RNA sequence: CGCCUGAUGCCACAUAGCUGGUAGCUAUAUGCUCUGACCGGUGAUGCUAUGAUCGGGCGUAAAGAAAGCUUCUUCUGCGCUUCGCAUGUAUAUAGGAACCUGUGGAUUGGCUUUUUCAUCCGUUCACAGAGCCGUUUUGUGCGAUUAUAUUU
Numbered sequence: 001c002g003c004c005u006g007a008u009g010c011c012a013c014a015u016a017g018c019u020g021g022u023a024g025c026u027a028u029a030u031g032c033u034c035u036g037a038c039c040g041g042u043g044a045u046g047c048u049a050u051g052a053u054c055g056g057g058c059g060u061a062a063a064g065a066a067a068g069c070u071u072c073u074u075c076u077g078c079g080c081u082u083c084g085c086a087u088g089u090a091u092a093u094a095g096g097a098a099c100c101u102g103u104g105g106a107u108u109g110g111c112u113u114u115u116u117c118a119u120c121c122g123u124u125c126a127c128a129g130a131g132c133c134g135u136u137u138u139g140u141g142c143g144a145u146u147a148u149a150u151u152u
Stems, first nucleotide, its partner, number of pairs: 002058007009050001013046003017042002020039003024032002082144005095133002100129003104125004